The family of this 91-nucleotide sequence is "skipping-rope RNA". By type it is a small RNA.
[Rfam]
RNA sequence: UGGUUUAGAGGUUGAAAAGUAUCCCGCUCCAACGCGCCACCAGUAAUGGUGGGCCGAGAAAUGUGGGCGACCGCGGGUCCCACCUAAGCUA
Number, nucleotide and partner (000 for none) at each position: 001u091002g090003g089004u088005u087006u086007a085008g084009a000010g000011g033012u032013u031014g030015a000016a000017a000018a000019g000020u000021a000022u000023c000024c076025c075026g074027c073028u000029c000030c014031a013032a012033c011034g000035c058036g000037c052038c051039a050040c049041c048042a047043g000044u000045a000046a000047u042048g041049g040050u039051g038052g037053g000054c000055c000056g000057a000058g035059a000060a000061a000062u000063g083064u082065g081066g080067g079068c000069g000070a000071c000072c000073g027074c026075g025076g024077g000078u000079c067080c066081c065082a064083c063084c008085u007086a006087a005088g004089c003090u002091a001